[Rfam]
Nucleotides: 110
Base pairs, nucleotide, nucleotide: 004012006011014038015037016036017035018033019032020031021030041072042071043070044069045068046067050065051064052063053062075105076104077103078102079101080100081099082098084096085095086094
Number, partner (000 for none) and nucleotide at each position: 001000a002000a003000c004012g005000u006011c007000c008000g009000a010000c011006g012004c013000u014038g015037a016036u017035c018033c019032u020031c021030c022000c023000c024000u025000c026000c027000c028000c029000u030021g031020g032019a033018g034000c035017g036016a037015u038014c039000u040000c041072g042071g043070a044069a045068c046067g047000u048000a049000a050065g051064g052063u053062c054000c055000c056000u057000c058000c059000c060000c061000a062053g063052a064051c065050c066000c067046c068045g069044u070043u071042c072041c073000c074000c075105a076104g077103c078102c079101c080100c081099g082098c083000c084096g085095g086094c087000c088000c089000c090000c091000c092000c093000u094086g095085c096084c097000u098082g099081c100080g101079g102078g103077g104076c105075u106000u107000u108000u109000u110000a